[Rfam]
RNA: Bacterial small subunit ribosomal RNA, nucleotides 1 to 552
Organism: Flavobacterium branchiophilum
RNA sequence: ACGAUGAAGAGUUUGAUCCUGGCUCAGGAUGAACGCUAGCGGCAGGCUUAACACAUGCAAGUCGAGGGGUAUAGUAGCAAUACUAGAGACCGGCGCACGGGUGCGUAACGCGUAUGCAAUCUACCUUUUACAUAGGGAUAGCCCAGAGAAAUUUGGAUUAAUACCUGAUAGUAUGUGAUGAUCGCAUGGUUUUCACAUUAAAGUACCAACGGUAAAAGAUGAGCAUGCGUCCCAUUAGCUAGAUGGUAAGGUAACGGCUUACCAUGGCUACGAUGGGUAGGGGUCCUGAGAGGGAGAUCCCCCACACUGGUACUGAGACACGGACCAGACUCCUACGGGAGGCAGCAGUGAGGAAUAUUGGACAAUGGGCGCAAGCCUGAUCCAGCCAUGCCGCGUGCAGGAUGACGGUCCUAUGGAUUGUAAACUGCUUUUGUACAGGAAGAAACACUUCUACGAGUAGAAGCUUGACGGUACUGUAAGAAUAAGGAUCGGCUAACUCCGUGCCAGCAGCCGCGGUAAUACGGAGGAUCCAAGCGUUAUCCGGAAUCAUUG
Numbered sequence: 001a002c003g004a005u006g007a008a009g010a011g012u013u014u015g016a017u018c019c020u021g022g023c024u025c026a027g028g029a030u031g032a033a034c035g036c037u038a039g040c041g042g043c044a045g046g047c048u049u050a051a052c053a054c055a056u057g058c059a060a061g062u063c064g065a066g067g068g069g070u071a072u073a074g075u076a077g078c079a080a081u082a083c084u085a086g087a088g089a090c091c092g093g094c095g096c097a098c099g100g101g102u103g104c105g106u107a108a109c110g111c112g113u114a115u116g117c118a119a120u121c122u123a124c125c126u127u128u129u130a131c132a133u134a135g136g137g138a139u140a141g142c143c144c145a146g147a148g149a150a151a152u153u154u155g156g157a158u159u160a161a162u163a164c165c166u167g168a169u170a171g172u173a174u175g176u177g178a179u180g181a182u183c184g185c186a187u188g189g190u191u192u193u194c195a196c197a198u199u200a201a202a203g204u205a206c207c208a209a210c211g212g213u214a215a216a217a218g219a220u221g222a223g224c225a226u227g228c229g230u231c232c233c234a235u236u237a238g239c240u241a242g243a244u245g246g247u248a249a250g251g252u253a254a255c256g257g258c259u260u261a262c263c264a265u266g267g268c269u270a271c272g273a274u275g276g277g278u279a280g281g282g283g284u285c286c287u288g289a290g291a292g293g294g295a296g297a298u299c300c301c302c303c304a305c306a307c308u309g310g311u312a313c314u315g316a317g318a319c320a321c322g323g324a325c326c327a328g329a330c331u332c333c334u335a336c337g338g339g340a341g342g343c344a345g346c347a348g349u350g351a352g353g354a355a356u357a358u359u360g361g362a363c364a365a366u367g368g369g370c371g372c373a374a375g376c377c378u379g380a381u382c383c384a385g386c387c388a389u390g391c392c393g394c395g396u397g398c399a400g401g402a403u404g405a406c407g408g409u410c411c412u413a414u415g416g417a418u419u420g421u422a423a424a425c426u427g428c429u430u431u432u433g434u435a436c437a438g439g440a441a442g443a444a445a446c447a448c449u450u451c452u453a454c455g456a457g458u459a460g461a462a463g464c465u466u467g468a469c470g471g472u473a474c475u476g477u478a479a480g481a482a483u484a485a486g487g488a489u490c491g492g493c494u495a496a497c498u499c500c501g502u503g504c505c506a507g508c509a510g511c512c513g514c515g516g517u518a519a520u521a522c523g524g525a526g527g528a529u530c531c532a533a534g535c536g537u538u539a540u541c542c543g544g545a546a547u548c549a550u551u552g
Base pairs, nucleotide, nucleotide: 009025010024011023012022013021027542028541029540030539032538033537034536035535036534037533039394040393041392042391043390044389045387046386047352052350053349054348056347057346058345061094062093063092066091067090070087072085073084074083075082076081101305102304103303110230111229112228113227114226115225116224117223120222121221125218126217127216128215129214130213131212133167134166135165136164141158143156144155145154146153147152173198174197175196176195177194178193181190182189183188203210204209231277232276233275238268239267240266243265244264245263246262247261248260249259250258280302281301282300283299284295285294286293287292307328308327309326310325311324330341331340332339333338358384360383361382362381366379367378368377369376370375397428398427399426400425407419408418409417410416434478435477436476437475438474442469448463449462450461486531487530488529489528490527497526498525499524500523501522507514508513